Shown here is a 119-nucleotide RNA from Nannospalax galili, a member of the family "Small nucleolar RNA SNORA42/SNORA80 family". Rfam 15.1 lists 1,535 matches to the family in 183 species. On this family, see Schattner et al., RNA 2006: "A computational screen for mammalian pseudouridylation guide H/ACA RNAs". About the family: The members of this family belong to the H/ACA class of snoRNAs that guide the sites of modification of uridines to pseudouridines. Human ACA42 (SNORA42) was cloned from HeLa cells by immunoprecipitation with anti-GAR1 antibody. Its is predicted to guide the pseudouridylation of residues U109 and U572 of 18S rRNA. ACA42 shares the same host gene with ACA26, ACA46, ACA50. This family also includes mammalian snoRNA ACA67 (SNORA80) which was identified by computational screening and its expression in mouse experimentally verified by Northern blot and primer extension analysis. It is annotated as an H/ACA-box small nucleolar RNA. The family's consensus secondary structure was predicted with RNAalifold.

[Rfam]
RNA sequence: GCAUGAAAAUAUGUAUAUGAGCCUCUCAUAGUGUCCCAUGCUAGGGCAACCCGUGGCUCCGAACCAUUGCCUGGCCUUUGUACCUGUAGGCUGCUGGCACUAAAGUGGGUCCCACGGUC
Numbered sequence: 001g002c003a004u005g006a007a008a009a010u011a012u013g014u015a016u017a018u019g020a021g022c023c024u025c026u027c028a029u030a031g032u033g034u035c036c037c038a039u040g041c042u043a044g045g046g047c048a049a050c051c052c053g054u055g056g057c058u059c060c061g062a063a064c065c066a067u068u069g070c071c072u073g074g075c076c077u078u079u080g081u082a083c084c085u086g087u088a089g090g091c092u093g094c095u096g097g098c099a100c101u102a103a104a105g106u107g108g109g110u111c112c113c114a115c116g117g118u119c
Stems, first nucleotide, its partner, number of pairs: 001041004005036001007034001016030005055111005066101001070097002072093006
The organism belongs to Nannospalax, within Eukaryota.
A search with the family's covariance model found it, with a score of 87 bits.